[Rfam]
RNA: ES036 (CssrF) sRNA
RNA sequence: ACAAUCUUGCAAAAUCAAUAUAUUGCACGAUCCUCGUAGGCCU
Dot-bracket structure: ...(((.(((((..........))))).)))............
Numbered sequence: 001a002c003a004a005u006c007u008u009g010c011a012a013a014a015u016c017a018a019u020a021u022a023u024u025g026c027a028c029g030a031u032c033c034u035c036g037u038a039g040g041c042c043u
Stems, first nucleotide, its partner, number of pairs: 004031003008027005